[Rfam]
Nucleotides: 454
Base pairs, nucleotide, nucleotide: 002454003453004452005451006450007449008447009446010445011444014406015405016404017403018402019401023086024084025083026082027081028080029079039066040065041064042063043062045060046059047058048057049056050055091438092437094436095435096434097433122133123132124131125130227378236373237372238371239370240369245366246365247364248363253359254358408423409422410421411420412419413418
Number, partner (000 for none) and nucleotide at each position: 001000c002454c003453c004452u005451c006450g007449c008447u009446c010445a011444a012000a013000a014406a015405a016404u017403c018402g019401c020000c021000a022000u023086u024084c025083g026082a027081a028080g029079c030000u031000u032000a033000c034000a035000a036000a037000c038000a039066g040065a041064g042063a043062c044000a045060c046059u047058g048057c049056g050055a051000u052000u053000a054000a055050u056049u057048g058047c059046a060045g061000c062043g063042u064041c065040u066039c067000g068000c069000a070000u071000u072000c073000a074000u075000u076000c077000u078000g079029g080028c081027u082026u083025u084024g085000g086023g087000a088000g089000a090000a091438a092437g093000u094436c095435c096434c097433c098000g099000g100000a101000c102000a103000u104000c105000u106000u107000c108000g109000u110000u111000u112000c113000g114000a115000c116000g117000g118000a119000g120000c121000u122133u123132g124131c125130g126000g127000a128000a129000a130125c131124g132123c133122g134000c135000c136000g137000c138000c139000a140000u141000a142000g143000a144000a145000g146000c147000a148000c149000a150000g151000c152000g153000g154000c155000u156000g157000a158000c159000u160000u161000c162000u163000g164000c165000a166000c167000c168000c169000a170000g171000g172000c173000c174000c175000a176000c177000g178000u179000c180000c181000u182000a183000c184000a185000c186000c187000g188000g189000c190000c191000c192000u193000g194000c195000c196000c197000u198000c199000c200000g201000u202000u203000a204000c205000a206000u207000c208000a209000g210000u211000u212000u213000g214000u215000u216000a217000a218000a219000g220000g221000c222000u223000c224000u225000g226000a227378a228000u229000c230000g231000c232000g233000u234000u235000c236373u237372c238371u239370g240369c241000c242000g243000c244000u245366c246365u247364c248363g249000g250000u251000c252000c253359c254358c255000u256000u257000g258000g259000a260000u261000g262000a263000a264000g265000a266000u267000a268000u269000g270000a271000g272000u273000c274000c275000g276000c277000u278000g279000c280000c281000g282000a283000g284000a285000g286000a287000u288000u289000g290000g291000u292000u293000g294000g295000u296000u297000u298000c299000g300000a301000g302000a303000c304000a305000g306000a307000c308000g309000a310000g311000u312000c313000g314000u315000c316000u317000g318000g319000c320000a321000g322000g323000u324000u325000g326000a327000u328000g329000g330000u331000u332000g333000g334000u335000a336000g337000a338000c339000g340000c341000u342000u343000g344000g345000u346000g347000c348000u349000c350000g351000c352000a353000c354000g355000u356000g357000u358254g359253g360000u361000g362000u363248c364247g365246g366245g367000u368000c369240g370239c371238a372237g373236a374000g375000g376000a377000u378227u379000u380000g381000u382000u383000g384000u385000c386000g387000a388000g389000a390000u391000u392000g393000a394000u395000a396000g397000g398000u399000a400000u401019g402018c403017g404016a405015u406014u407000g408423c409422u410421c411420g412419g413418c414000g415000a416000a417000a418413g419412c420411u421410g422409g423408g424000u425000u426000a427000c428000u429000c430000g431000a432000u433097g434096g435095g436094g437092c438091u439000c440000a441000u442000u443000c444011u445010u446009g447008a448000u449007g450006c451005g452004a453003g454002g
The record is a 454-nucleotide RNA from Fusarium globosum, which matches "RNase MRP" in Rfam.
For this family Rfam cites "Secondary structure of RNase MRP RNA as predicted by phylogenetic comparison" (Schmitt et al., FASEB J, 1993).
A search with the family's covariance model found it, with a score of 108 bits.
It is annotated as a ribozyme.